[Rfam]
RNA sequence: AUGGAGUUGAUGAUUAUUUCCCCAGAUGAUCGACGCUGAUUAAACUGUGCUAAAUUUGUUCUCUUAUGAGAAUCUAAGCCAGAUCUCUGAUCUAU
Numbered sequence: 001a002u003g004g005a006g007u008u009g010a011u012g013a014u015u016a017u018u019u020c021c022c023c024a025g026a027u028g029a030u031c032g033a034c035g036c037u038g039a040u041u042a043a044a045c046u047g048u049g050c051u052a053a054a055u056u057u058g059u060u061c062u063c064u065u066a067u068g069a070g071a072a073u074c075u076a077a078g079c080c081a082g083a084u085c086u087c088u089g090a091u092c093u094a095u
Stems, first nucleotide, its partner, number of pairs: 001095005
Dot-bracket structure: (((((.....................................................................................)))))
The family of this 95-nucleotide RNA from Beta vulgaris is "Small nucleolar RNA Z103". Taxonomically the source falls in Beta vulgaris (Eukaryota, Streptophytina, Spermatophyta, Gunneridae). By type it is a C/D-box small nucleolar RNA. Pairs were carried over by alignment from the consensus structure, which was predicted with PFOLD. The literature on the family includes a 2003 paper in Nucleic Acids Res by Chen et al., "The high diversity of snoRNAs in plants: identification and comparative study of 120 snoRNA genes from Oryza sativa". Rfam links the family to the GO terms nucleolus and RNA processing. Rfam 15.1 lists 2,844 matches to the family in 233 species.